[Rfam]
RNA sequence: GCAGACUCACUCUGCUUCUGGAUACAGUCCCAGGCAGAUACUUGUUUUGUCUGCCAUAGAAACAUUCCAGGGUACUGUGACUACCUUGACCUAUUAAGGGUGAUGCAGCUGCCAGGGGACAAGGUA
Number, nucleotide and partner (000 for none) at each position: 001g054002c053003a052004g051005a050006c049007u000008c000009a000010c000011u000012c000013u000014g041015c000016u000017u038018c037019u036020g035021g000022a000023u032024a000025c000026a000027g000028u000029c000030c000031c000032a023033g000034g000035c020036a019037g018038a017039u000040a000041c014042u000043u000044g000045u000046u000047u000048u000049g006050u005051c004052u003053g002054c001055c000056a000057u000058a000059g000060a000061a000062a000063c000064a000065u000066u117067c116068c115069a000070g113071g112072g000073u000074a000075c108076u107077g106078u105079g104080a000081c000082u102083a101084c100085c099086u098087u000088g000089a000090c000091c000092u000093a000094u000095u000096a000097a000098g086099g085100g084101u083102g082103a000104u079105g078106c077107a076108g075109c000110u000111g000112c071113c070114a000115g068116g067117g066118g000119a000120c000121a000122a000123g000124g000125u000126a000